[Rfam]
Nucleotides: 078
Stems, first nucleotide, its partner, number of pairs: 002078004
Number, partner (000 for none) and nucleotide at each position: 001000u002078g003077a004076c005075a006000a007000a008000u009000u010000c011000u012000c013000c014000g015000g016000a017000a018000u019000c020000u021000c022000u023000g024000u025000a026000c027000u028000a029000c030000c031000u032000u033000g034000a035000u036000g037000a038000u039000u040000a041000c042000a043000u044000u045000u046000g047000a048000a049000c050000c051000u052000a053000u054000u055000a056000u057000c058000u059000g060000a061000u062000g063000a064000c065000u066000g067000c068000g069000g070000g071000u072000u073000c074000g075005u076004g077003u078002c